Overview:
This 96-nucleotide sequence from Clostridium cellulovorans belongs to the Rfam family "Guanidine-I riboswitch aptamer".
RNA sequence: UAUUUAGUUUUCUAGGGUUCCGCAGUUUACCACUGGCAGGUCCAAGAGAAAACGCACAGAUAACUGUGUACACGGAAGGAUAAAAGCCUGGGAGAU
Numbered sequence: 001u002a003u004u005u006a007g008u009u010u011u012c013u014a015g016g017g018u019u020c021c022g023c024a025g026u027u028u029a030c031c032a033c034u035g036g037c038a039g040g041u042c043c044a045a046g047a048g049a050a051a052a053c054g055c056a057c058a059g060a061u062a063a064c065u066g067u068g069u070a071c072a073c074g075g076a077a078g079g080a081u082a083a084a085a086g087c088c089u090g091g092g093a094g095a096u
Stems, first nucleotide, its partner, number of pairs: 007053006015043002020040002022037001023035004054069006071091001073094001077089003

Notes: From the family's description: This family represents a conserved RNA structure found upstream of the ykkC and yxkD genes in Bacillus subtilis and related genes in other bacteria. Gene Ontology term of the family: regulation of gene expression.